[Rfam]
RNA: c-di-AMP riboswitch aptamer (ydaO/yuaA leader)
Organism: Streptomyces naganishii
RNA sequence: UAUCCAUCAACGAACCACUCAUGGCAGGAGCGGGGGACCCAGGUAAGUCGCCGGUCCGCGCGUCGUACGGCCCACGCCGUACGCCGUCGCAGGAGCGGCUAGGGGUGAAGCCGUGCCCUCAGGGGCGCGGCCGGGCACCUCCCCGCCCGAACCCGACAGCUCACCUCGCAGGCGAUGGAGAGGAAUC
Numbered sequence: 001u002a003u004c005c006a007u008c009a010a011c012g013a014a015c016c017a018c019u020c021a022u023g024g025c026a027g028g029a030g031c032g033g034g035g036g037a038c039c040c041a042g043g044u045a046a047g048u049c050g051c052c053g054g055u056c057c058g059c060g061c062g063u064c065g066u067a068c069g070g071c072c073c074a075c076g077c078c079g080u081a082c083g084c085c086g087u088c089g090c091a092g093g094a095g096c097g098g099c100u101a102g103g104g105g106u107g108a109a110g111c112c113g114u115g116c117c118c119u120c121a122g123g124g125g126c127g128c129g130g131c132c133g134g135g136c137a138c139c140u141c142c143c144c145g146c147c148c149g150a151a152c153c154c155g156a157c158a159g160c161u162c163a164c165c166u167c168g169c170a171g172g173c174g175a176u177g178g179a180g181a182g183g184a185a186u187c
Base pairs, nucleotide, nucleotide: 003029004028005027030169031168032167033166034165035164040102103154104153105152111130112129113128114127115126116125133148134147135146136145
Dot-bracket structure: ..(((.....................)))((((((....(.............................................................)(((.....((((((........))))))..((((........))))...))).........))))))..................